Notes
This 80-nucleotide RNA sequence from Triplophysa tibetana belongs to the Rfam family "mir-203 microRNA precursor family".

RNA sequence: GUCUCCCUCAUCAAGUGGUCCUAAACAUUUCACAAUUUUGAGAUAGAACUGUUGAACUGUUAAGAACCACUUCACCAGAG
Numbered sequence: 001g002u003c004u005c006c007c008u009c010a011u012c013a014a015g016u017g018g019u020c021c022u023a024a025a026c027a028u029u030u031c032a033c034a035a036u037u038u039u040g041a042g043a044u045a046g047a048a049c050u051g052u053u054g055a056a057c058u059g060u061u062a063a064g065a066a067c068c069a070c071u072u073c074a075c076c077a078g079a080g
Base pairs, nucleotide, nucleotide: 014071015070016069017068018067019066021064022063024061025060026059027058029056030055031054032053
Dot-bracket structure: .............((((((.((.((((.((((....................)))).)))).)).)))))).........
Pairs were carried over by alignment from the consensus structure, which was predicted with RNAalifold. The family has 32 seed sequences and 1,049 matches in Rfam 15.1. It scores 65 bits against the family's covariance model.